[Rfam]
This 105-nucleotide RNA from Corynebacterium uterequi belongs to the Rfam family "mraW RNA". Taxonomically the source falls in Corynebacterium (Bacteria, Actinomycetota, Actinomycetes, Corynebacteriaceae). Rfam 15.1 lists 851 matches to the family in 821 species.
RNA sequence: GAGCAGGGUACGGGUAGAACUCUGCCCGGGAGGGUGAGAUCUGGUGUACUUCCCCGACAUCAGAUCCCCCGCCCGGACAGGGCUCUAUGCGCGCCCCGCAUCGCC
Numbered sequence: 001g002a003g004c005a006g007g008g009u010a011c012g013g014g015u016a017g018a019a020c021u022c023u024g025c026c027c028g029g030g031a032g033g034g035u036g037a038g039a040u041c042u043g044g045u046g047u048a049c050u051u052c053c054c055c056g057a058c059a060u061c062a063g064a065u066c067c068c069c070c071g072c073c074c075g076g077a078c079a080g081g082g083c084u085c086u087a088u089g090c091g092c093g094c095c096c097c098g099c100a101u102c103g104c105c
Stems, first nucleotide, its partner, number of pairs: 006096004011091002017085002020082005026076005032070002036068001038066010